Shown here is a 104-nucleotide sequence from Zea mays, a member of the family "MIR444 microRNA precursor family". The source organism's lineage runs through Eukaryota, Tracheophyta, Spermatophyta, Mesangiospermae and Zea. Rfam's curators put it in the seed alignment.
[Rfam]
RNA sequence: UGACGAGCUAGAGGCAGCAACUGCAUAUCUUGCAAGAAAAUUGGUUUUCGAACCAUACCGAUAAUUUUCUUGCAAGUUGUGCAGUUGUUGUCUCAAGCUUGCUG
Numbered sequence: 001u002g003a004c005g006a007g008c009u010a011g012a013g014g015c016a017g018c019a020a021c022u023g024c025a026u027a028u029c030u031u032g033c034a035a036g037a038a039a040a041u042u043g044g045u046u047u048u049c050g051a052a053c054c055a056u057a058c059c060g061a062u063a064a065u066u067u068u069c070u071u072g073c074a075a076g077u078u079g080u081g082c083a084g085u086u087g088u089u090g091u092c093u094c095a096a097g098c099u100u101g102c103u104g
Stems, first nucleotide, its partner, number of pairs: 004101005011094002014091002024081003029076001031074005038067003042063001